[Rfam]
RNA sequence: UGCACCCAGGGAUAGGAUAGCGGUUCACUUGGAAGCCCCCUUUUCUAUCCCUGGUACUGGC
Numbered sequence: 001u002g003c004a005c006c007c008a009g010g011g012a013u014a015g016g017a018u019a020g021c022g023g024u025u026c027a028c029u030u031g032g033a034a035g036c037c038c039c040c041u042u043u044u045c046u047a048u049c050c051c052u053g054g055u056a057c058u059g060g061c
Stems, first nucleotide, its partner, number of pairs: 006054009016044002019041002022038002
RNA: mir-1544 microRNA precursor family